[Rfam]
RNA sequence: GCUGGGCUUAGCAACGUUAGCCUGUAACCCAAGUGGGGGCAACAGGGUGAUGGAACAUGGGCUCAGCCCAAAGGAUAGGGCUUGUGUUGCUAAUUUGCUGGGCUGUCCUGUCCAAGCUGAGAGCAUGAACCAUGCGGGCCAAGCGAAAGCUUGGGUUGUGUGGUUACUAAAGUGGAGGGUACUGCGUUAGGCUGGCCUCACAGAGCAGCGAUAACCUCUCACUCUCAGCAGUGGAAGGAUAACAGUUCGGUGCAACUAUGGCCCAACAAAUCUCCGAUGGGUUGAACCUAAUUGGACCAUCACUUUU
Numbered sequence: 001g002c003u004g005g006g007c008u009u010a011g012c013a014a015c016g017u018u019a020g021c022c023u024g025u026a027a028c029c030c031a032a033g034u035g036g037g038g039g040c041a042a043c044a045g046g047g048u049g050a051u052g053g054a055a056c057a058u059g060g061g062c063u064c065a066g067c068c069c070a071a072a073g074g075a076u077a078g079g080g081c082u083u084g085u086g087u088u089g090c091u092a093a094u095u096u097g098c099u100g101g102g103c104u105g106u107c108c109u110g111u112c113c114a115a116g117c118u119g120a121g122a123g124c125a126u127g128a129a130c131c132a133u134g135c136g137g138g139c140c141a142a143g144c145g146a147a148a149g150c151u152u153g154g155g156u157u158g159u160g161u162g163g164u165u166a167c168u169a170a171a172g173u174g175g176a177g178g179g180u181a182c183u184g185c186g187u188u189a190g191g192c193u194g195g196c197c198u199c200a201c202a203g204a205g206c207a208g209c210g211a212u213a214a215c216c217u218c219u220c221a222c223u224c225u226c227a228g229c230a231g232u233g234g235a236a237g238g239a240u241a242a243c244a245g246u247u248c249g250g251u252g253c254a255a256c257u258a259u260g261g262c263c264c265a266a267c268a269a270a271u272c273u274c275c276g277a278u279g280g281g282u283u284g285a286a287c288c289u290a291a292u293u294g295g296a297c298c299a300u301c302a303c304u305u306u307u
Stems, first nucleotide, its partner, number of pairs: 001040003004023005010017001028037003044306010056294002058291001060289001061287001063285004068280003073275003077271001078264003081260001083258002086256004091252002098250009107238002111235004116229008128165010139154006167172001174219005185210003192203003